RNA sequence: CGAGUUGACUAGACAAUCGCUGCUUUAUCGUUGUAUUUAAUGUUUCGACAUCAGGUAUACGGGUAGAGGGGAGGAAAGUCCGGGCUCCAUUGAGCAGGGUGCCAGGUAACGCCUGGGAGGCGAAAGCCUACGACAAGUGCAGCAGAGAGAAGACCGCCGAUGACCGCUUGCGGAACAGGUAAGGCUGAAAGGGUGUGGUAAGAGCGCACCGGACCACUGGUAACAGUUGGUUGCAGGGUAAACUCCACCCGGAGCAAGACCAAAUAGGGUUUCAAUACUUUAAAUAGUAUACGCGUGGCUCGCGUGGAAACCGGGUAGGUUGCUUGAGCCUUAAAGCGAUUUAAGGCCUAGACGAAUGAUUGUCCACGACAGAACCCGGCUUAUCGGUCAGCGCACACA
Numbered sequence: 001c002g003a004g005u006u007g008a009c010u011a012g013a014c015a016a017u018c019g020c021u022g023c024u025u026u027a028u029c030g031u032u033g034u035a036u037u038u039a040a041u042g043u044u045u046c047g048a049c050a051u052c053a054g055g056u057a058u059a060c061g062g063g064u065a066g067a068g069g070g071g072a073g074g075a076a077a078g079u080c081c082g083g084g085c086u087c088c089a090u091u092g093a094g095c096a097g098g099g100u101g102c103c104a105g106g107u108a109a110c111g112c113c114u115g116g117g118a119g120g121c122g123a124a125a126g127c128c129u130a131c132g133a134c135a136a137g138u139g140c141a142g143c144a145g146a147g148a149g150a151a152g153a154c155c156g157c158c159g160a161u162g163a164c165c166g167c168u169u170g171c172g173g174a175a176c177a178g179g180u181a182a183g184g185c186u187g188a189a190a191g192g193g194u195g196u197g198g199u200a201a202g203a204g205c206g207c208a209c210c211g212g213a214c215c216a217c218u219g220g221u222a223a224c225a226g227u228u229g230g231u232u233g234c235a236g237g238g239u240a241a242a243c244u245c246c247a248c249c250c251g252g253a254g255c256a257a258g259a260c261c262a263a264a265u266a267g268g269g270u271u272u273c274a275a276u277a278c279u280u281u282a283a284a285u286a287g288u289a290u291a292c293g294c295g296u297g298g299c300u301c302g303c304g305u306g307g308a309a310a311c312c313g314g315g316u317a318g319g320u321u322g323c324u325u326g327a328g329c330c331u332u333a334a335a336g337c338g339a340u341u342u343a344a345g346g347c348c349u350a351g352a353c354g355a356a357u358g359a360u361u362g363u364c365c366a367c368g369a370c371a372g373a374a375c376c377c378g379g380c381u382u383a384u385c386g387g388u389c390a391g392c393g394c395a396c397a398c399a
Stems, first nucleotide, its partner, number of pairs: 002394001004392007011384001012364007020071002023068006076382003080379005085254004092300001095297001097250005102116005117131001118129004132245002137243002139239002154184002156180003161177002164173003192210006211234001212232005217226003258321004268312006291305005328347008
Dot-bracket structure: .(.(((((((((((((((.((.((((((..................................)))))).))....[[[.[[[[[((((...[..[.((((((((((.....)))))(((((....)))).)((...((((.............(((((..((.(((....)))..)))))..)).......((((((.......))))))(((((((((....))).))))).)...))..)))))))))))))...((((......((((((.................(((((.]..]))))).)))))).....))))......((((((((....))))))))..........)))))))..........]]]]]]]].).))))))).).....
RNA: Bacterial RNase P class A
Organism: Thalassotalea piscium